Shown here is a 144-nucleotide RNA from Triticum urartu, a member of the family "MIR827 microRNA precursor family". It scores 79 bits against the family's covariance model. Taxonomically the source falls in Triticum (Eukaryota, Poales, Triticodae, Triticinae).
RNA sequence: ACUUGUUUUGCUGGUUGUCAUCUAACCAUCGUUCAGUCUGCCGUCUGUAAGCUUGGUGCAUGGAUGGGUGCCUGAGUGGGUGCAUGGCGAUUACGCCGACAGACAGACGGUGGUGAUGGUUAGAUGACCAUCAGCAAACAUGUU
Numbered sequence: 001a002c003u004u005g006u007u008u009u010g011c012u013g014g015u016u017g018u019c020a021u022c023u024a025a026c027c028a029u030c031g032u033u034c035a036g037u038c039u040g041c042c043g044u045c046u047g048u049a050a051g052c053u054u055g056g057u058g059c060a061u062g063g064a065u066g067g068g069u070g071c072c073u074g075a076g077u078g079g080g081u082g083c084a085u086g087g088c089g090a091u092u093a094c095g096c097c098g099a100c101a102g103a104c105a106g107a108c109g110g111u112g113g114u115g116a117u118g119g120u121u122a123g124a125u126g127a128c129c130a131u132c133a134g135c136a137a138a139c140a141u142g143u144u
Base pairs, nucleotide, nucleotide: 005139006138007137008136010135011134012133013132014131015130017128018127019126020125021124022123023122024121025120026119027118028117029116030115031114032113033112